[Rfam]
RNA sequence: UUGCAGACCUCCAGCGAGGCCCAGCCUGCAGUGGCUCUGUCCUUUCCUUUAGCGUCUGCUAGAGCGACGUGGGGCUGUUUGAGGCCCUGCUGUGGUUCAGUCACAGCUGGGUUAUAGGUAAACCUCCAACAUUU
Numbered sequence: 001u002u003g004c005a006g007a008c009c010u011c012c013a014g015c016g017a018g019g020c021c022c023a024g025c026c027u028g029c030a031g032u033g034g035c036u037c038u039g040u041c042c043u044u045u046c047c048u049u050u051a052g053c054g055u056c057u058g059c060u061a062g063a064g065c066g067a068c069g070u071g072g073g074g075c076u077g078u079u080u081g082a083g084g085c086c087c088u089g090c091u092g093u094g095g096u097u098c099a100g101u102c103a104c105a106g107c108u109g110g111g112u113u114a115u116a117g118g119u120a121a122a123c124c125u126c127c128a129a130c131a132u133u134u
Base pairs, nucleotide, nucleotide: 003059004058005057006056007055008054017043018042019041023036024035025034026033071126072125073124074123085111086110087109089107090106092104093103094102

Source information: A member of the RNA family "Small nucleolar RNA SNORA9" from Betta splendens, 134 nucleotides long. The family is grouped with related families in Rfam's "SNORA9 clan". The base pairs follow the family's consensus structure, which was predicted with PFOLD. Rfam 15.1 lists 1,202 matches to the family in 518 species. Rfam classes the family as an H/ACA-box small nucleolar RNA.